The record is a 76-nucleotide RNA from Baryphthengus martii, which matches "Small nucleolar RNA SNORD83" in Rfam.
Rfam 15.1 lists 1,393 matches to the family in 644 species.
Gene Ontology terms of the family: nucleolus and RNA processing.
For this family Rfam cites "Characterisation of the U83 and U84 small nucleolar RNAs: two novel 2'-O-ribose methylation guide RNAs that lack complementarities to ribosomal RNAs" (Jady and Kiss, Nucleic Acids Res, 2000).
The source organism's lineage runs through Eukaryota, Archosauria, Dinosauria, Neognathae and Baryphthengus.
The match comes from Rfam's covariance-model search (61 bits).
The base pairs follow the family's consensus structure, which was predicted with PFOLD.
RNA sequence: GUCAGAUGAUGUGAAGCGGAUGGCAUUAGCGCUCUGCGCAAAGAUGACCUGGAUCUAUCACCCUAGACUGAUGACU
Numbered sequence: 001g002u003c004a005g006a007u008g009a010u011g012u013g014a015a016g017c018g019g020a021u022g023g024c025a026u027u028a029g030c031g032c033u034c035u036g037c038g039c040a041a042a043g044a045u046g047a048c049c050u051g052g053a054u055c056u057a058u059c060a061c062c063c064u065a066g067a068c069u070g071a072u073g074a075c076u
Stems, first nucleotide, its partner, number of pairs: 001075004029039004